[Rfam]
RNA sequence: UUCUUAUCAAGAGAGGCGGAGGGACUGGCCCUAUGAAACCCGGCAACCAAAAAUAAUAAUUUUAAGGUGCCAAUUCCAGCAGGUGAAACCUGACAGAUAAGAC
Dot-bracket structure: .(((((((....[.[[....[[[.((((]]].......]]]((((.((((((.......))))..))))))...[))))((((.....))))..]))))))).

SAM riboswitch aptamer (S box leader): a 103-nucleotide RNA from Clostridium tetani. Rfam's curators put it in the seed alignment. The family's consensus secondary structure is taken from published work. A reference for the family is Daldrop and Lilley (2013), "The plasticity of a structural motif in RNA: structural polymorphism of a kink turn as a function of its environment", RNA.